RNA sequence: CCAGCCACUGCAGGAGAGCGGGUCACGAAGAAGGUGAUCCCACCGAAGGCGCAAACUCCCAUGAACGCUCAGGUAAACCGGUCACUGCCGGUUGUGU
Numbered sequence: 001c002c003a004g005c006c007a008c009u010g011c012a013g014g015a016g017a018g019c020g021g022g023u024c025a026c027g028a029a030g031a032a033g034g035u036g037a038u039c040c041c042a043c044c045g046a047a048g049g050c051g052c053a054a055a056c057u058c059c060c061a062u063g064a065a066c067g068c069u070c071a072g073g074u075a076a077a078c079c080g081g082u083c084a085c086u087g088c089c090g091g092u093u094g095u096g097u
Stems, first nucleotide, its partner, number of pairs: 008090001010088004020040007042074003045070002049068003055062001
A member of the RNA family "Glycine riboswitch aptamer" from Variovorax sp., 97 nucleotides long. Rfam links the family to the GO term glycine biosynthetic process.